Overview: Shown here is a 140-nucleotide RNA from a Sphingomonadaceae bacterium, a member of the family "Group II catalytic intron D1-D4-4". Its family is annotated with Group II intron splicing in the Gene Ontology. The family has 90 seed sequences and 840 matches in Rfam 15.1. Group II introns are found in rRNA, tRNA and mRNA of organelles in fungi, plants and protists, and also in mRNA in bacteria. A reference for the family is Bonen and Vogel (2001), "The ins and outs of group II introns", Trends Genet. Pairs were carried over by alignment from the consensus structure. Lineage of the source: Bacteria > Pseudomonadati > Pseudomonadota > Sphingomonadales > Sphingomonadaceae.
RNA sequence: CAGUGGAGGGAGUUUCCACCCAGAUAGUUGUCGAUAGGUCUGGUAGCUGACGAGCGGCUUGGCAGGGUAACCGGUUGGGCUGAAGCCUCGUGACAAAGGCCGCUUUGGGCGGUUGAGCGAUCCAGCGGGCCGUAACGUGU
Numbered sequence: 001c002a003g004u005g006g007a008g009g010g011a012g013u014u015u016c017c018a019c020c021c022a023g024a025u026a027g028u029u030g031u032c033g034a035u036a037g038g039u040c041u042g043g044u045a046g047c048u049g050a051c052g053a054g055c056g057g058c059u060u061g062g063c064a065g066g067g068u069a070a071c072c073g074g075u076u077g078g079g080c081u082g083a084a085g086c087c088u089c090g091u092g093a094c095a096a097a098g099g100c101c102g103c104u105u106u107g108g109g110c111g112g113u114u115g116a117g118c119g120a121u122c123c124a125g126c127g128g129g130c131c132g133u134a135a136c137g138u139g140u
Stems, first nucleotide, its partner, number of pairs: 020043005050091005055082006066071001098114006117133003